[Rfam]
RNA sequence: CUUUAAAAAUCUGGAUCAAGCUGAAAAUUGAAACACUGAACAACGAAAGUUGUUCGUGAGUCUCUCAAAUUUUCGCAACACGAUGAUGAAUCGC
Number, nucleotide and partner (000 for none) at each position: 001c000002u000003u000004u000005a000006a000007a000008a000009a000010u000011c000012u000013g000014g000015a000016u000017c000018a000019a000020g076021c075022u000023g074024a073025a072026a071027a070028u069029u068030g000031a000032a000033a000034c058035a057036c056037u000038g055039a054040a053041c052042a051043a050044c049045g000046a000047a000048a000049g044050u043051u042052g041053u040054u039055c038056g036057u035058g034059a000060g000061u000062c000063u000064c000065u000066c000067a000068a029069a028070u027071u026072u025073u024074c023075g021076c020077a000078a000079c000080a000081c000082g000083a000084u000085g000086a000087u000088g000089a000090a000091u000092c000093g000094c000
The record is a 94-nucleotide RNA, which matches "Salmonella enterica Typhi npcRNA 44" in Rfam.
On this family, see Chinni et al., Nucleic Acids Res 2010: "Experimental identification and characterization of 97 novel npcRNA candidates in Salmonella enterica serovar Typhi".
The match comes from Rfam's covariance-model search (98 bits).